[Rfam]
RNA: Small nucleolar RNA SNORA70
RNA sequence: CUGCAGCCUAUUAAGCCAACCAGGUUCCUUCCCUUAUGGUGGCCUGAUGUGCAAUGGCUUCAAACAGCAGCCUCCUGGGUAGUGUAUGUAACCAGUUGAUUAUACAGGAUGGCCUAAGGGACCUUGGAGACAGUU
Numbered sequence: 001c002u003g004c005a006g007c008c009u010a011u012u013a014a015g016c017c018a019a020c021c022a023g024g025u026u027c028c029u030u031c032c033c034u035u036a037u038g039g040u041g042g043c044c045u046g047a048u049g050u051g052c053a054a055u056g057g058c059u060u061c062a063a064a065c066a067g068c069a070g071c072c073u074c075c076u077g078g079g080u081a082g083u084g085u086a087u088g089u090a091a092c093c094a095g096u097u098g099a100u101u102a103u104a105c106a107g108g109a110u111g112g113c114c115u116a117a118g119g120g121a122c123c124u125u126g127g128a129g130a131c132a133g134u135u
Stems, first nucleotide, its partner, number of pairs: 002053004019048001021046002025042002028039001078123003089111002092108002